[Rfam]
RNA sequence: GAAAACAAAUCGCUUAAUCUGAAAUCAGAGCGGGGGACCCAAUAGAACGGCUUUUUGCCGUUGGGGUGAAUCCUUUUUAGGUAGGGCUAACUCUCAUAUGCCCGAAUCCGUCAGCUAACCUCGUAAGCGUUCGUGAGAGGAGAU
Numbered sequence: 001g002a003a004a005a006c007a008a009a010u011c012g013c014u015u016a017a018u019c020u021g022a023a024a025u026c027a028g029a030g031c032g033g034g035g036g037a038c039c040c041a042a043u044a045g046a047a048c049g050g051c052u053u054u055u056u057g058c059c060g061u062u063g064g065g066g067u068g069a070a071u072c073c074u075u076u077u078u079a080g081g082u083a084g085g086g087c088u089a090a091c092u093c094u095c096a097u098a099u100g101c102c103c104g105a106a107u108c109c110g111u112c113a114g115c116u117a118a119c120c121u122c123g124u125a126a127g128c129g130u131u132c133g134u135g136a137g138a139g140g141a142g143a144u
Base pairs, nucleotide, nucleotide: 011129012128013127014126018029019028020027030124031123032122033121034120035119040063041062042061043060064109065108066107072081073080074079084103085102086101087100
RNA: c-di-AMP riboswitch aptamer (ydaO/yuaA leader)